mir-181 microRNA precursor family: an 83-nucleotide sequence from Synaphobranchus kaupii.
RNA sequence: UUGCUUCAGUGAACAUUCAACGCUGUCGGUGAGUUUGAGAUAAAUUGAAAAAACCAUCGACCGUUGAUUGUACCCUGCAGCAA
Numbered sequence: 001u002u003g004c005u006u007c008a009g010u011g012a013a014c015a016u017u018c019a020a021c022g023c024u025g026u027c028g029g030u031g032a033g034u035u036u037g038a039g040a041u042a043a044a045u046u047g048a049a050a051a052a053a054c055c056a057u058c059g060a061c062c063g064u065u066g067a068u069u070g071u072a073c074c075c076u077g078c079a080g081c082a083a
Base pairs, nucleotide, nucleotide: 001083002082003081004080005079007077008076014070015069017067018066019065020064021063022062025061026060027059028058029057030056031055033054034053035052036051
A reference for the family is Ambros (2001), "microRNAs: tiny regulators with great potential", Cell.